[Rfam]
RNA sequence: CCAGAGGGUCGGGCGGCCGCGUCAUGUGCAAACAUGCCGAGGAAAGUCCGGGCUCCACGGAACAACGGUGCCGGGUAACACCCGGCGGGGGCGGCCAGUAAUGGGCGCCUUCAGGGACAGUGCCACAGAGAGCAGACAAGCGACGGUUUCGGCCACGCGAAAAGUGAAAGGGUGCGGCAAGAGCGCACCGCGGUGCUGGCAACAGCAUCGGCACGGCAAACCCCACCGGGAGCAAGACCGAAUAGGGGCGGCAUGGGGCCUUGUGCCCCGGGGCGUGUUCCCGCUCGCCGCCCGGGUUGGUUGCUAGAGGCGGCGCGCAAGCGUCGUCGGAGAGGAAUGGUCGCCCAGUCCCUUCGGGGAUGGACAGAACCCGGCUUACAGACCCUUUGGCACC
Number, nucleotide and partner (000 for none) at each position: 001c390002c389003a388004g387005a386006g385007g384008g383009u382010c381011g379012g345013g344014c343015g342016g341017c340018c339019g000020c039021g038022u000023c036024a035025u034026g033027u032028g000029c000030a000031a000032a027033c026034a025035u024036g023037c000038c021039g020040a000041g000042g000043a000044a377045a376046g375047u000048c374049c373050g372051g371052g370053c232054u231055c230056c229057a000058c000059g000060g000061a000062a279063c000064a000065a000066c228067g227068g226069u225070g224071c085072c084073g083074g082075g081076u000077a000078a000079c000080a000081c075082c074083c073084g072085g071086c114087g112088g111089g110090g109091g108092c107093g106094g000095c000096c000097a000098g000099u000100a000101a000102u000103g000104g000105g000106c093107g092108c091109c090110u089111u088112c087113a000114g086115g223116g222117a000118c000119a000120g221121u220122g217123c216124c215125a000126c000127a000128g000129a000130g000131a000132g000133c000134a000135g000136a000137c000138a000139a000140g158141c157142g156143a000144c000145g154146g153147u152148u000149u000150c000151g000152g147153c146154c145155a000156c142157g141158c140159g000160a000161a000162a000163a000164g000165u000166g000167a000168a000169a000170g000171g189172g188173u187174g186175c185176g184177g000178c000179a000180a000181g000182a000183g000184c176185g175186c174187a173188c172189c171190g212191c210192g209193g208194u207195g206196c205197u204198g203199g000200c000201a000202a000203c198204a197205g196206c195207a194208u193209c192210g191211g000212c190213a000214c000215g124216g123217c122218a000219a000220a121221c120222c116223c115224c070225a069226c068227c067228g066229g056230g055231a054232g053233c000234a000235a000236g302237a301238c300239c299240g000241a000242a000243u000244a000245g000246g293247g292248g291249c290250g289251g288252c000253a000254u000255g000256g000257g000258g000259c000260c000261u000262u000263g000264u000265g000266c000267c000268c000269c000270g000271g286272g285273g284274c283275g282276u000277g000278u000279u062280c000281c000282c275283g274284c273285u272286c271287g000288c251289c250290g249291c248292c247293c246294g000295g000296g000297u000298u000299g239300g238301u237302u236303g000304c000305u000306a000307g000308a000309g328310g327311c326312g325313g324314c323315g322316c321317g000318c000319a000320a000321g316322c315323g314324u313325c312326g311327u310328c309329g000330g000331a000332g000333a000334g000335g000336a000337a000338u000339g018340g017341u016342c015343g014344c013345c012346c000347a000348g000349u000350c000351c000352c000353u000354u000355c000356g000357g000358g000359g000360a000361u000362g000363g000364a000365c000366a000367g000368a000369a000370c052371c051372c050373g049374g048375c046376u045377u044378a000379c011380a000381g010382a009383c008384c007385c006386u005387u004388u003389g002390g001391c000392a000393c000394c000
This 394-nucleotide sequence from Sphingomonas aerophila belongs to the Rfam family "Bacterial RNase P class A". A search with the family's covariance model found it, with a score of 257 bits. The organism belongs to Sphingomonas, within Bacteria.